[Rfam]
RNA sequence: AUUCACCUGUAUAAUGGAUUACGCAGGAAGUUUUAAGGGCGGUGGCUGUCUUUUCCCUUGUGAGGUGAGGCCCAUGGGAACAUGGAAGAAUCUUCAGGAAGGUUUCACAGUCAAUGAGCGUCUUCCAGACACUCUCGUUGAUGUUGCUAUUUGCAAUGUUUAUUUUAGCGUUGCUAACGUACAU
Number, nucleotide and partner (000 for none) at each position: 001a000002u000003u000004c000005a000006c000007c000008u000009g000010u000011a000012u000013a000014a000015u000016g000017g000018a000019u000020u000021a000022c000023g000024c000025a000026g000027g000028a000029a000030g000031u000032u000033u000034u000035a000036a000037g000038g000039g000040c000041g000042g157043u156044g000045g154046c153047u000048g000049u000050c000051u000052u000053u000054u000055c000056c000057c000058u000059u000060g000061u096062g095063a094064g093065g092066u000067g000068a000069g000070g000071c088072c000073c000074a000075u000076g000077g000078g000079a000080a000081c000082a000083u000084g000085g000086a000087a000088g071089a000090a000091u000092c065093u064094u063095c062096a061097g000098g000099a000100a000101g000102g000103u000104u000105u000106c000107a000108c000109a000110g000111u000112c000113a000114a000115u000116g136117a135118g134119c000120g132121u131122c000123u129124u000125c000126c000127a000128g000129a123130c000131a121132c120133u000134c118135u117136c116137g000138u000139u000140g000141a000142u000143g000144u000145u000146g000147c000148u000149a000150u000151u000152u000153g046154c045155a000156a043157u042158g000159u000160u000161u000162a180163u179164u000165u177166u000167a175168g174169c000170g000171u000172u000173g000174c168175u167176a000177a165178c000179g163180u162181a000182c000183a000184u000